[Rfam]
RNA sequence: AAGUUAAAGGAGCAAUACCAAUCCUCUUGGUAGAACAAGAAAUUGGUUAUUGCUCCUUCAU
Dot-bracket structure: ......(((((((((((...(...(((((......)))))...)...)))))))))))...
RNA: Plastid-psbA-4 3UTR RNA
Organism: Pachysandra terminalis